A member of the RNA family "mir-2807 microRNA precursor family" from Bombyx mori, 84 nucleotides long.

[Rfam]
Nucleotides: 084
Stems, first nucleotide, its partner, number of pairs: 008078009018068001020066002023063001025061002028058001034052001039047001
Number, partner (000 for none) and nucleotide at each position: 001000u002000u003000a004000a005000c006000u007000c008078a009077a010076a011075u012074u013073u014072g015071u016070a017000u018068g019000g020066a021065g022000g023063u024000a025061g026060a027000u028058c029000a030000g031000c032000g033000c034052c035000c036000c037000u038000a039047g040000c041000g042000g043000c044000a045000a046000a047039c048000g049000u050000a051000c052034g053000c054000a055000a056000a057000a058028g059000u060026u061025c062000c063023a064000g065021c066020u067000c068018c069000a070016u071015a072014c073013a074012a075011a076010u077009u078008u079000g080000a081000g082000u083000u084000a
For this family Rfam cites "MicroRNAs of Bombyx mori identified by Solexa sequencing" (Liu et al., BMC Genomics, 2010). Its family is annotated with RISC complex and miRNA-mediated post-transcriptional gene silencing in the Gene Ontology. The organism belongs to Bombyx, within Eukaryota.